The record is a 99-nucleotide RNA sequence from Paenibacillus agri, which matches "Purine riboswitch aptamer" in Rfam. Pairs were carried over by alignment from the consensus structure, which is taken from published work. A search with the family's covariance model found it, with a score of 68 bits.

RNA sequence: AGCACAACAACAUCAUUUACUCGUAUAAUUCCGGGAAUUGGCCCGGAAGUCUCUACAGGUCACCGUAAUGACCUGGCUACGAUUAAGAAGAGAACAAUC
Numbered sequence: 001a002g003c004a005c006a007a008c009a010a011c012a013u014c015a016u017u018u019a020c021u022c023g024u025a026u027a028a029u030u031c032c033g034g035g036a037a038u039u040g041g042c043c044c045g046g047a048a049g050u051c052u053c054u055a056c057a058g059g060u061c062a063c064c065g066u067a068a069u070g071a072c073c074u075g076g077c078u079a080c081g082a083u084u085a086a087g088a089a090g091a092g093a094a095c096a097a098u099c
Base pairs, nucleotide, nucleotide: 018085019084021082022081023080024079025078029048030047031046032045033044034043035042056075057074058073059072060071061070062069